[Rfam]
RNA sequence: CAAUUCCUUCGGGGCAGGGUGAAAUUCCCUACCGGCGGUGAUGAAGCAAUGCUUCAAAGUCCGUGACCCGCAUUGGUGAAAACCAAUCGGUGGACCUGGUGAAAUUCCAGGACCGACAGUUAAAGUCUGGAUGGGAGAAGGAAUUU
Numbered sequence: 001c002a003a004u005u006c007c008u009u010c011g012g013g014g015c016a017g018g019g020u021g022a023a024a025u026u027c028c029c030u031a032c033c034g035g036c037g038g039u040g041a042u043g044a045a046g047c048a049a050u051g052c053u054u055c056a057a058a059g060u061c062c063g064u065g066a067c068c069c070g071c072a073u074u075g076g077u078g079a080a081a082a083c084c085a086a087u088c089g090g091u092g093g094a095c096c097u098g099g100u101g102a103a104a105u106u107c108c109a110g111g112a113c114c115g116a117c118a119g120u121u122a123a124a125g126u127c128u129g130g131a132u133g134g135g136a137g138a139a140g141g142a143a144u145u146u
Base pairs, nucleotide, nucleotide: 003144004143005142006141007140008139009138010137017029018028019027031126032125033115034114035064036063037062038061059113060112068090069089095111096110097109098108099107117129118128119127
Shown here is a 146-nucleotide sequence from Oceanobacillus bengalensis, a member of the family "FMN riboswitch aptamer (RFN element)". Rfam's curators write: The RFN element is a highly conserved domain that is found frequently in the 5'-untranslated regions of prokaryotic mRNAs that encode for flavin mononucleotide (FMN) biosynthesis and transport proteins. The family's consensus secondary structure is taken from published work.